[Rfam]
RNA sequence: UAAGAAACAAAGGGGUGCCCUUUCAAGAGAAAAGGGCUGAGAUGAUACCCUCACACCUGAUGCAGUUCGUACUGCCGUAGGGAUUGUUGAUGAGCUCUGA
Numbered sequence: 001u002a003a004g005a006a007a008c009a010a011a012g013g014g015g016u017g018c019c020c021u022u023u024c025a026a027g028a029g030a031a032a033a034g035g036g037c038u039g040a041g042a043u044g045a046u047a048c049c050c051u052c053a054c055a056c057c058u059g060a061u062g063c064a065g066u067u068c069g070u071a072c073u074g075c076c077g078u079a080g081g082g083a084u085u086g087u088u089g090a091u092g093a094g095c096u097c098u099g100a
Base pairs, nucleotide, nucleotide: 006088007087008086009085010084011051012050013049014048016045017037018036019035020034021033022032023031056081057080058079059078062075063074064073065072
This 100-nucleotide sequence from Parabacteroides sp. CAG:409 belongs to the Rfam family "TPP riboswitch aptamer (THI element)". Rfam links the family to the GO term thiamine pyrophosphate binding. It scores 67 bits against the family's covariance model.